[Rfam]
RNA sequence: UCCAGAUGACUUGAAUUGAUAAACUGGUGUUCUGUGGGGUACAACGGUCACCGUGAUAUUAGAGUUCUGAUGGAA
Numbered sequence: 001u002c003c004a005g006a007u008g009a010c011u012u013g014a015a016u017u018g019a020u021a022a023a024c025u026g027g028u029g030u031u032c033u034g035u036g037g038g039g040u041a042c043a044a045c046g047g048u049c050a051c052c053g054u055g056a057u058a059u060u061a062g063a064g065u066u067c068u069g070a071u072g073g074a075a
Base pairs, nucleotide, nucleotide: 001074002073003072004071
Background:
The family of this 75-nucleotide RNA from Otolemur garnettii is "Small nucleolar RNA SNORD28". Pairs were carried over by alignment from the consensus structure, which was predicted with PFOLD.